[Rfam]
RNA: TPP riboswitch aptamer (THI element)
RNA sequence: UUUCGGCUUUAGGGGUAUUCCUUUUUUAAAUGGAAUUGAGAGAGUCCCUUUGAACCUGAUUUGGUUGACACCAGCGUAGGGAAAAGUUCGUAUCAUCUU
Numbered sequence: 001u002u003u004c005g006g007c008u009u010u011a012g013g014g015g016u017a018u019u020c021c022u023u024u025u026u027u028a029a030a031u032g033g034a035a036u037u038g039a040g041a042g043a044g045u046c047c048c049u050u051u052g053a054a055c056c057u058g059a060u061u062u063g064g065u066u067g068a069c070a071c072c073a074g075c076g077u078a079g080g081g082a083a084a085a086g087u088u089c090g091u092a093u094c095a096u097c098u099u
Stems, first nucleotide, its partner, number of pairs: 006087005011049004016043001017036005055080004061074004